[Rfam]
RNA: 6S / SsrS RNA
RNA sequence: GAUUUCCUGAGAUGUGCGUAAAGCUUAUGAUAUUCAACCUACAUGAUAUUAUCGGGAUUUGCAAUAGAUUCAUAAAUGUCAGGCUUCAUUUUAUCACUGAUUGUGACGGUAGAAGACAGGAAUGGAUUGCGCUUAACCCACCUGCGAGGCGCAGGACUUGAAUAUAUAGGUGGACGGCAUGUUGGGAGCUAU
Numbered sequence: 001g002a003u004u005u006c007c008u009g010a011g012a013u014g015u016g017c018g019u020a021a022a023g024c025u026u027a028u029g030a031u032a033u034u035c036a037a038c039c040u041a042c043a044u045g046a047u048a049u050u051a052u053c054g055g056g057a058u059u060u061g062c063a064a065u066a067g068a069u070u071c072a073u074a075a076a077u078g079u080c081a082g083g084c085u086u087c088a089u090u091u092u093a094u095c096a097c098u099g100a101u102u103g104u105g106a107c108g109g110u111a112g113a114a115g116a117c118a119g120g121a122a123u124g125g126a127u128u129g130c131g132c133u134u135a136a137c138c139c140a141c142c143u144g145c146g147a148g149g150c151g152c153a154g155g156a157c158u159u160g161a162a163u164a165u166a167u168a169g170g171u172g173g174a175c176g177g178c179a180u181g182u183u184g185g186g187a188g189c190u191a192u
Base pairs, nucleotide, nucleotide: 002190004188005187006186007185008184009183010182012180013179014178015177017176018175019174031164032163033162035160036159037158038155039154054139055138056137058135061132062131065129067128068127069126070125071124072123073122079116080115084112085111087109